[Rfam]
RNA: tRNA
Organism: Guillardia theta
RNA sequence: GGGGGUAUAGCUCAGUUGGUAGAGCGCUGCCUUUGCACGGCAGAUGUCAGGGGUUCGAGUCCCCUUACCUCCA
Numbered sequence: 001g002g003g004g005g006u007a008u009a010g011c012u013c014a015g016u017u018g019g020u021a022g023a024g025c026g027c028u029g030c031c032u033u034u035g036c037a038c039g040g041c042a043g044a045u046g047u048c049a050g051g052g053g054u055u056c057g058a059g060u061c062c063c064c065u066u067a068c069c070u071c072c073a
Stems, first nucleotide, its partner, number of pairs: 001072007010025004027043005049065005